This 263-nucleotide sequence from Atopomonas hussainii belongs to the Rfam family "rne-II RNA".
A search with the family's covariance model found it, with a score of 111 bits.
The source organism's lineage runs through Bacteria, Pseudomonadati, Pseudomonadales, Pseudomonadaceae and Atopomonas.
[Rfam]
RNA sequence: UUUCGUGCAGGUGGAGAUGCACAGCUGGCCUUUGCGUAGCACUCAAGCGUUGACGACGUGAGUUACUCCGUCCCGCUGGCCCGCUGAUUCCUCCCCCUGACUGAGUGCUUCUGUACUGAUUGAUUUACAGAGAAUCAGGAACGUAAGUCGCCGCAGCAUUAAACGCGGCACGACAAAACGAGCAGCCUAGGCUGCUCUACGGCCUGACACGCGACCGUAAGGAUCGUGUGUGCCGUCGCGGUUUCCGUGAGCCCGGAAACCUA
Numbered sequence: 001u002u003u004c005g006u007g008c009a010g011g012u013g014g015a016g017a018u019g020c021a022c023a024g025c026u027g028g029c030c031u032u033u034g035c036g037u038a039g040c041a042c043u044c045a046a047g048c049g050u051u052g053a054c055g056a057c058g059u060g061a062g063u064u065a066c067u068c069c070g071u072c073c074c075g076c077u078g079g080c081c082c083g084c085u086g087a088u089u090c091c092u093c094c095c096c097c098u099g100a101c102u103g104a105g106u107g108c109u110u111c112u113g114u115a116c117u118g119a120u121u122g123a124u125u126u127a128c129a130g131a132g133a134a135u136c137a138g139g140a141a142c143g144u145a146a147g148u149c150g151c152c153g154c155a156g157c158a159u160u161a162a163a164c165g166c167g168g169c170a171c172g173a174c175a176a177a178a179c180g181a182g183c184a185g186c187c188u189a190g191g192c193u194g195c196u197c198u199a200c201g202g203c204c205u206g207a208c209a210c211g212c213g214a215c216c217g218u219a220a221g222g223a224u225c226g227u228g229u230g231u232g233c234c235g236u237c238g239c240g241g242u243u244u245c246c247g248u249g250a251g252c253c254c255g256g257a258a259a260c261c262u263a
Stems, first nucleotide, its partner, number of pairs: 013094004022086004027081003034076003039048002055072004096139004142201004147174003150169004180197007207231004212226003241260007